Shown here is an 86-nucleotide RNA sequence, a member of the family "RAGATH-18 RNA". Rfam describes the family as follows. Actinobacteria, Firmicutes, Fusobacteria, Thermotogae (1 example). It is annotated as a small RNA. The base pairs follow the family's consensus structure, which is taken from published work.
[Rfam]
RNA sequence: CCUUUGGAGCGUUAAGCCAAACGAAAGUAGCCGGGCGAAUAAGCGCAAGCGAGCGAGCGGCAAAAUCGGACGCGAUGAAUUAGGAA
Numbered sequence: 001c002c003u004u005u006g007g008a009g010c011g012u013u014a015a016g017c018c019a020a021a022c023g024a025a026a027g028u029a030g031c032c033g034g035g036c037g038a039a040u041a042a043g044c045g046c047a048a049g050c051g052a053g054c055g056a057g058c059g060g061c062a063a064a065a066u067c068g069g070a071c072g073c074g075a076u077g078a079a080u081u082a083g084g085a086a
Base pairs, nucleotide, nucleotide: 001084002083003082009073010072011071012070013069022068023067024066030061031060032059035058036057